[Rfam]
RNA: Small nucleolar RNA SNORD28
Organism: Sciurus vulgaris
RNA sequence: GUCAGAUGAUUUGAAAUCAAUAAGCUGAUGAUCUGUGAGGUCCAGGAGUUAAUAGCAGAGUUCUGAUGGCA
Numbered sequence: 001g002u003c004a005g006a007u008g009a010u011u012u013g014a015a016a017u018c019a020a021u022a023a024g025c026u027g028a029u030g031a032u033c034u035g036u037g038a039g040g041u042c043c044a045g046g047a048g049u050u051a052a053u054a055g056c057a058g059a060g061u062u063c064u065g066a067u068g069g070c071a
Stems, first nucleotide, its partner, number of pairs: 001070004